[Rfam]
RNA sequence: UCCCCCCUGGUGUAACGGCAACACACAGGCCUUUGGAGCCUUGAGAUACCUGUUCGAAUCAGGUGGGGGGAG
Numbered sequence: 001u002c003c004c005c006c007c008u009g010g011u012g013u014a015a016c017g018g019c020a021a022c023a024c025a026c027a028g029g030c031c032u033u034u035g036g037a038g039c040c041u042u043g044a045g046a047u048a049c050c051u052g053u054u055c056g057a058a059u060c061a062g063g064u065g066g067g068g069g070g071a072g
Stems, first nucleotide, its partner, number of pairs: 001071007010024004027041004048064005

Shown here is a 72-nucleotide sequence from Kineosporia babensis, a member of the family "tRNA". The family's consensus secondary structure is taken from published work. Its family is annotated with triplet codon-amino acid adaptor activity in the Gene Ontology. The family's RNA type in Rfam is transfer RNA. Rfam 15.1 lists 5,335,975 matches to the family in 14,413 species.